RNA: U11 spliceosomal RNA
Organism: Aphidius gifuensis
RNA sequence: AAAAAGGGUGCUCGCUACUUUAAUAGCGCGUUGGUUCAAUAUUGAAUCGGCGGGGUAUGGCUAUCAAGACAUACCCAGUACAUAAUUUUUGUGAACGUGAGGCUGUUAGCUGCCGAAUUGCACUGACGCCUCC
Numbered sequence: 001a002a003a004a005a006g007g008g009u010g011c012u013c014g015c016u017a018c019u020u021u022a023a024u025a026g027c028g029c030g031u032u033g034g035u036u037c038a039a040u041a042u043u044g045a046a047u048c049g050g051c052g053g054g055g056u057a058u059g060g061c062u063a064u065c066a067a068g069a070c071a072u073a074c075c076c077a078g079u080a081c082a083u084a085a086u087u088u089u090u091g092u093g094a095a096c097g098u099g100a101g102g103c104u105g106u107u108a109g110c111u112g113c114c115g116a117a118u119u120g121c122a123c124u125g126a127c128g129c130c131u132c133c
Stems, first nucleotide, its partner, number of pairs: 008081005013028005029052010053076007100131004105127005111122003